[Rfam]
RNA sequence: UGGUAUAUUUGUGAUAAAUCCCUAUCUAGCUAUGGUAAAUCCUCACUUUACUUCUAAGAACUCUCGCUUUCUAUUAGCUCAGUUAUAUCAACAAGUCAAUUCAGUCAAAAUCCAAUUGACUCAAAAAUUAUAUU
Numbered sequence: 001u002g003g004u005a006u007a008u009u010u011g012u013g014a015u016a017a018a019u020c021c022c023u024a025u026c027u028a029g030c031u032a033u034g035g036u037a038a039a040u041c042c043u044c045a046c047u048u049u050a051c052u053u054c055u056a057a058g059a060a061c062u063c064u065c066g067c068u069u070u071c072u073a074u075u076a077g078c079u080c081a082g083u084u085a086u087a088u089c090a091a092c093a094a095g096u097c098a099a100u101u102c103a104g105u106c107a108a109a110a111u112c113c114a115a116u117u118g119a120c121u122c123a124a125a126a127a128u129u130a131u132a133u134u
Stems, first nucleotide, its partner, number of pairs: 004132004008127002012123001015119001018116002024111002027107001029105003

Record summary
MIR480 microRNA precursor family: a 134-nucleotide RNA from Salix dunnii. Rfam links the family to the GO terms miRNA-mediated post-transcriptional gene silencing and RISC complex.